[Rfam]
RNA sequence: AUAGAAAAUGCCAAACCUGUUGGAAAGCAGGGACGGAAAACUGCGGGUCUUUAGAGAUAGCCGAGUUGCCUAAU
Numbered sequence: 001a002u003a004g005a006a007a008a009u010g011c012c013a014a015a016c017c018u019g020u021u022g023g024a025a026a027g028c029a030g031g032g033a034c035g036g037a038a039a040a041c042u043g044c045g046g047g048u049c050u051u052u053a054g055a056g057a058u059a060g061c062c063g064a065g066u067u068g069c070c071u072a073a074u
Base pairs, nucleotide, nucleotide: 001074003071004070011036012035016031017030018029019028020027021026034060039067040066041065042064044063045062046061047058048057049056

The record is a 74-nucleotide RNA sequence from Desulfocapsa sulfexigens, which matches "c-di-GMP-I-GGC riboswitch aptamer" in Rfam. Rfam links the family to the GO term cyclic-di-GMP binding. It scores 69 bits against the family's covariance model.